[Rfam]
RNA sequence: AUUCCAAUUGAGGUCAACUUACCUGAUAAUAACGCCCCGUUUGGCAACGGGAAUCAGGAGAUCUCAUGUUC
Numbered sequence: 001a002u003u004c005c006a007a008u009u010g011a012g013g014u015c016a017a018c019u020u021a022c023c024u025g026a027u028a029a030u031a032a033c034g035c036c037c038c039g040u041u042u043g044g045c046a047a048c049g050g051g052a053a054u055c056a057g058g059a060g061a062u063c064u065c066a067u068g069u070u071c
Base pairs, nucleotide, nucleotide: 036051037050038049039048040047041046
The family of this 71-nucleotide sequence from Edwardsiella ictaluri is "PyrD leader".
The literature on the family includes a 1994 paper in Nucleic Acids Res by Sorensen, "Conformational heterogeneity in the Salmonella typhimurium pyrC and pyrD leader mRNAs produced in vivo".
NCBI's taxonomy places the organism under Bacteria, Pseudomonadota, Enterobacterales, Hafniaceae, Edwardsiella ictaluri.
The sequence is in the family's curated seed alignment.
It is annotated as a cis-regulatory leader.